[Rfam]
RNA sequence: UCGACGCGUCGCGACUGGCGCGUCCCGGAGCUGCUUCGGCAGGCCGCGGGAGGGUGGAGAACCACCGGGGAGCGACGAGCUGUGCAGACGACGGGUCGUUCGCCUGGGCCCCGGGU
Numbered sequence: 001u002c003g004a005c006g007c008g009u010c011g012c013g014a015c016u017g018g019c020g021c022g023u024c025c026c027g028g029a030g031c032u033g034c035u036u037c038g039g040c041a042g043g044c045c046g047c048g049g050g051a052g053g054g055u056g057g058a059g060a061a062c063c064a065c066c067g068g069g070g071a072g073c074g075a076c077g078a079g080c081u082g083u084g085c086a087g088a089c090g091a092c093g094g095g096u097c098g099u100u101c102g103c104c105u106g107g108g109c110c111c112c113g114g115g116u
Base pairs, nucleotide, nucleotide: 003081005079007077008076009075010074011073012072015069016068017104018103019102020101054065055064056063057062093111094110095109096108097107
The family of this 116-nucleotide sequence from Cellulosimicrobium sp. CUA-896 is "ZMP/ZTP riboswitch aptamer (pfl RNA motif)". A search with the family's covariance model found it, with a score of 48 bits. A reference for the family is Jones et al. (2019), "Co-crystal structure of the Fusobacterium ulcerans ZTP riboswitch using an X-ray free-electron laser", Acta Crystallogr F Struct Biol Commun. NCBI's taxonomy places the organism under Bacteria, Actinomycetota, Micrococcales, Promicromonosporaceae, Cellulosimicrobium.